[Rfam]
RNA: PhrS
Organism: Bisbaumannia pacifica
RNA sequence: CUAGAGUGAGGCCAUACAUUCACGGCGGGAGAGACGAUCAUGUACUGGGACGAUGCCGUUAUCUUCGGGUUGGUGACCGUCGGGCUGAUGAUCAGCUUCCUGGUGGGCUGGGUCGGUUUCAUCAUCCAUGACCACAAGCACAAGGGCGGCAAGAAGUCCUGAGCUUCCGCCAGCGUAUCGCGGAGCCCGGCGGUCGCCGGGUGUCCAUAGUCGUCAGGGGAAGGGGGGCAACCCCCAUUUACGCCGGCCUUCGGGCCGGUUUUUUCU
Numbered sequence: 001c002u003a004g005a006g007u008g009a010g011g012c013c014a015u016a017c018a019u020u021c022a023c024g025g026c027g028g029g030a031g032a033g034a035c036g037a038u039c040a041u042g043u044a045c046u047g048g049g050a051c052g053a054u055g056c057c058g059u060u061a062u063c064u065u066c067g068g069g070u071u072g073g074u075g076a077c078c079g080u081c082g083g084g085c086u087g088a089u090g091a092u093c094a095g096c097u098u099c100c101u102g103g104u105g106g107g108c109u110g111g112g113u114c115g116g117u118u119u120c121a122u123c124a125u126c127c128a129u130g131a132c133c134a135c136a137a138g139c140a141c142a143a144g145g146g147c148g149g150c151a152a153g154a155a156g157u158c159c160u161g162a163g164c165u166u167c168c169g170c171c172a173g174c175g176u177a178u179c180g181c182g183g184a185g186c187c188c189g190g191c192g193g194u195c196g197c198c199g200g201g202u203g204u205c206c207a208u209a210g211u212c213g214u215c216a217g218g219g220g221a222a223g224g225g226g227g228g229c230a231a232c233c234c235c236c237a238u239u240u241a242c243g244c245c246g247g248c249c250u251u252c253g254g255g256c257c258g259g260u261u262u263u264u265u266c267u
Stems, first nucleotide, its partner, number of pairs: 010109004055065001082093002085090001163236001243260007